[Rfam]
Nucleotides: 081
Base pairs, nucleotide, nucleotide: 002079003078004077005076006075007074008073009072010071012069013068014067015066016065019062020061021060024057025056026055027054028053029052030051031050032049033048034047
Number, partner (000 for none) and nucleotide at each position: 001000a002079g003078a004077u005076a006075u007074u008073u009072u010071g011000a012069c013068u014067g015066c016065c017000u018000u019062u020061c021060u022000u023000g024057a025056g026055c027054u028053u029052a030051u031050a032049a033048g034047c035000c036000c037000a038000c039000a040000a041000u042000u043000a044000u045000g046000a047034g048033c049032u050031u051030a052029u053028a054027a055026g056025c057024u058000c059000a060021a061020g062019a063000a064000a065016g066015g067014c068013a069012g070000u071010c072009a073008a074007a075006a076005u077004a078003u079002c080000u081000u
The record is an 81-nucleotide RNA from Oxytricha trifallax, which matches "mir-231 microRNA precursor family" in Rfam. The family's consensus secondary structure was predicted with RNAalifold. Its family is annotated with RISC complex and miRNA-mediated post-transcriptional gene silencing in the Gene Ontology. NCBI's taxonomy places the organism under Eukaryota, Intramacronucleata, Spirotrichea, Sporadotrichida, Oxytricha. Rfam 15.1 lists 12 matches to the family in 11 species.